[Rfam]
Nucleotides: 171
Stems, first nucleotide, its partner, number of pairs: 001016002004013003028171003036163001041157004046151005062146006074138003078135007085113004091106004
Number, partner (000 for none) and nucleotide at each position: 001016c002015u003000c004013a005012u006011c007000g008000u009000g010000a011006g012005a013004u014000a015002a016001g017000g018000g019000c020000u021000g022000g023000a024000g025000g026000a027000a028171g029170c030169g031000u032000g033000g034000a035000a036163u037000a038000a039000a040000a041157u042156c043155u044154u045000g046151g047150c048149u049148c050147g051000a052000c053000g054000a055000a056000c057000a058000a059000a060000a061000a062146u063145c064144u065143g066142a067141u068000a069000u070000u071000a072000a073000g074138g075137c076136u077000c078135u079134a080133c081132a082131a083130a084129g085113g086112g087111a088110u089000a090000a091106g092105g093104c094103u095000c096000c097000a098000u099000a100000g101000c102000a103094a104093g105092u106091c107000a108000a109000a110088g111087u112086c113085c114000a115000a116000a117000a118000g119000a120000u121000g122000u123000g124000c125000g126000u127000a128000a129084c130083u131082u132081u133080g134079u135078a136076g137075g138074u139000a140000a141067a142066u143065c144064a145063g146062g147050c148049g149048g150047g151046u152000a153000a154044a155043a156042g157041a158000g159000g160000a161000a162000a163036g164000a165000u166000a167000g168000u169030u170029g171028u

Group II catalytic intron D1-D4-3: a 171-nucleotide RNA sequence from Bacillus sp. MUM 13. The match comes from Rfam's covariance-model search (119 bits). The source organism's lineage runs through Bacteria, Bacillati, Bacillota, Caryophanales and Bacillus. The base pairs follow the family's consensus structure. Gene Ontology term of the family: Group II intron splicing.